[Rfam]
Rfam assigns this 87-nucleotide RNA from Cnephaeus nilssonii to the family "mir-9195 microRNA precursor family". Lineage of the source: Eukaryota > Vertebrata > Laurasiatheria > Yangochiroptera > Cnephaeus. A search with the family's covariance model found it, with a score of 96 bits. Its family is annotated with miRNA-mediated post-transcriptional gene silencing and RISC complex in the Gene Ontology. Pairs were carried over by alignment from the consensus structure, which was predicted with RNAalifold.

RNA sequence: AGAGGCCCUCCGUGGCCGGGGUGGAACGCUUGCCUCAUCACCGCAGCAAUGAAGCAAGCAUUCCGCCAGGCCGCUCAUGCUGCCCAC
Numbered sequence: 001a002g003a004g005g006c007c008c009u010c011c012g013u014g015g016c017c018g019g020g021g022u023g024g025a026a027c028g029c030u031u032g033c034c035u036c037a038u039c040a041c042c043g044c045a046g047c048a049a050u051g052a053a054g055c056a057a058g059c060a061u062u063c064c065g066c067c068a069g070g071c072c073g074c075u076c077a078u079g080c081u082g083c084c085c086a087c
Base pairs, nucleotide, nucleotide: 004084005083006082012074013073014072015071016070017069020067021066022065023064024063025062026061028059029058030057031056032055033054037050038049041046